This 75-nucleotide sequence from Novosphingobium lindaniclasticum belongs to the Rfam family "Makes More Granules Regulator RNA (mmgR)". The organism belongs to Novosphingobium lindaniclasticum, within Bacteria. It is annotated as a small RNA.

RNA sequence: CCGCCCUGCCUUUCAGGCAUCCUCUCCCAAAACUUUUCAAGCCGACCUUCGGGUCGGCUUUUCUUUUUGGCGCAC
Dot-bracket structure: .......((((...))))....................(((((((((....)))))))))...............
Numbered sequence: 001c002c003g004c005c006c007u008g009c010c011u012u013u014c015a016g017g018c019a020u021c022c023u024c025u026c027c028c029a030a031a032a033c034u035u036u037u038c039a040a041g042c043c044g045a046c047c048u049u050c051g052g053g054u055c056g057g058c059u060u061u062u063c064u065u066u067u068u069g070g071c072g073c074a075c
Stems, first nucleotide, its partner, number of pairs: 008018004039060009